[Rfam]
RNA sequence: AAGUGAGGUAGAGGCGCGGUAUUUAACAGUCUGUUGUGGAGUCUGAGUGGCAAAGAUGCUAUGGAGAAGGAAAUAUCGCCGAAGUGUAUAAUACACUCCGUAUUAUAUGCUGGGACUACAGUUAAGAGCUGUAGGACUGUCUCAAUGAACUUCCCAGUUUAUUGAGUUGUGCUAUCUCCGAU
Number, nucleotide and partner (000 for none) at each position: 001a000002a000003g000004u000005g000006a177007g176008g175009u174010a173011g172012a000013g000014g000015c000016g079017c078018g077019g076020u075021a074022u073023u072024u071025a000026a000027c000028a000029g000030u000031c064032u063033g062034u061035u000036g059037u058038g057039g000040a000041g000042u000043c000044u000045g000046a000047g000048u000049g000050g000051c000052a000053a000054a000055g000056a000057u038058g037059c036060u000061a034062u033063g032064g031065a000066g000067a000068a000069g000070g000071a024072a023073a022074u021075a020076u019077c018078g017079c016080c000081g000082a000083a111084g110085u109086g108087u107088a106089u105090a104091a103092u102093a101094c100095a000096c000097u000098c000099c000100g094101u093102a092103u091104u090105a089106u088107a087108u086109g085110c084111u083112g138113g137114g000115a000116c134117u133118a132119c131120a130121g129122u128123u000124a000125a000126g000127a000128g122129c121130u120131g119132u118133a117134g116135g000136a000137c113138u112139g000140u000141c166142u165143c164144a163145a162146u161147g160148a159149a158150c000151u000152u000153c000154c000155c000156a000157g000158u149159u148160u147161a146162u145163u144164g143165a142166g141167u000168u000169g000170u000171g000172c011173u010174a009175u008176c007177u006178c000179c000180g000181a000182u000
RNA: Lysine riboswitch aptamer
Organism: Anaerocolumna cellulosilytica